[Rfam]
RNA: mir-31 microRNA precursor family
Organism: Rhynchophorus ferrugineus
RNA sequence: AGAGAUUGAGAAGGCAAGAUGUCGGCAUAGCUGAAUGUGUUAGAUUUUCGGCUAUGUCUCAUCAAGCCAUCUUAUACCUUU
Numbered sequence: 001a002g003a004g005a006u007u008g009a010g011a012a013g014g015c016a017a018g019a020u021g022u023c024g025g026c027a028u029a030g031c032u033g034a035a036u037g038u039g040u041u042a043g044a045u046u047u048u049c050g051g052c053u054a055u056g057u058c059u060c061a062u063c064a065a066g067c068c069a070u071c072u073u074a075u076a077c078c079u080u081u
Base pairs, nucleotide, nucleotide: 007074008073009072010071011070013068014067015066018063019062020061021060024058025057026056027055028054029053030052031051